[Rfam]
This 76-nucleotide sequence from Crocodylus porosus belongs to the Rfam family "Mammalian CPEB3 ribozyme". Rfam describes the family as follows. The mammalian CPEB3 ribozyme is a self cleaving RNA located in the second intron of the CPEB3 gene which belongs to a family of genes regulating messenger RNA polyadenylation. The family's consensus secondary structure is taken from published work. Taxonomically the source falls in Crocodylus (Eukaryota, Chordata, Craniata, Dipnotetrapodomorpha).
Nucleotides: 076
Base pairs, nucleotide, nucleotide: 016043017042018041021076022075024073025072026071027070028040029039030038048065049064050063052061053060054059
Number, partner (000 for none) and nucleotide at each position: 001000a002000g003000u004000u005000c006000c007000a008000a009000g010000u011000u012000g013000a014000a015000a016043g017042c018041c019000a020000a021076a022075g023000c024073a025072g026071a027070a028040a029039u030038g031000c032000u033000c034000a035000u036000g037000g038030u039029g040028u041018g042017g043016c044000c045000u046000g047000u048065c049064a050063g051000a052061u053060u054059c055000c056000a057000a058000u059054g060053a061052a062000c063050c064049u065048g066000a067000a068000a069000a070027u071026u072025c073024u074000u075022c076021u